RNA sequence: UAUUUGCUUAUGACAGUCACAGCCUAAAGUACACACGGCUGUGACUUGAUUUUUUUUUAAAAA
Numbered sequence: 001u002a003u004u005u006g007c008u009u010a011u012g013a014c015a016g017u018c019a020c021a022g023c024c025u026a027a028a029g030u031a032c033a034c035a036c037g038g039c040u041g042u043g044a045c046u047u048g049a050u051u052u053u054u055u056u057u058u059a060a061a062a063a
Stems, first nucleotide, its partner, number of pairs: 003063003015046010029036002
RNA: Selenocysteine insertion sequence 1